[Rfam]
RNA sequence: UGCUUUUUUCGCCCAGGCGGAGCUCGGCCGCCACUUCAAGUCGUGAGAGCGUUCAUCGACCGCCACCGCCAUGUCUACGGCGUCGAGCCGAUCUGCAGGGUGAUGCAGGUCGCGCCG
Numbered sequence: 001u002g003c004u005u006u007u008u009u010c011g012c013c014c015a016g017g018c019g020g021a022g023c024u025c026g027g028c029c030g031c032c033a034c035u036u037c038a039a040g041u042c043g044u045g046a047g048a049g050c051g052u053u054c055a056u057c058g059a060c061c062g063c064c065a066c067c068g069c070c071a072u073g074u075c076u077a078c079g080g081c082g083u084c085g086a087g088c089c090g091a092u093c094u095g096c097a098g099g100g101u102g103a104u105g106c107a108g109g110u111c112g113c114g115c116c117g
Base pairs, nucleotide, nucleotide: 016032017031018030019029020028078117079116080115081114082113089112090111092109093108094107095106096105097104

Shown here is a 117-nucleotide sequence from Massilia forsythiae, a member of the family "ALIL pseudoknot". The match comes from Rfam's covariance-model search (104 bits). A reference for the family is Mazauric et al. (2008), "Apical loop-internal loop RNA pseudoknots: a new type of stimulator of -1 translational frameshifting in bacteria", J Biol Chem. The source organism's lineage runs through Bacteria, Pseudomonadota, Betaproteobacteria, Oxalobacteraceae and Massilia. The family's RNA type in Rfam is cis-regulatory element.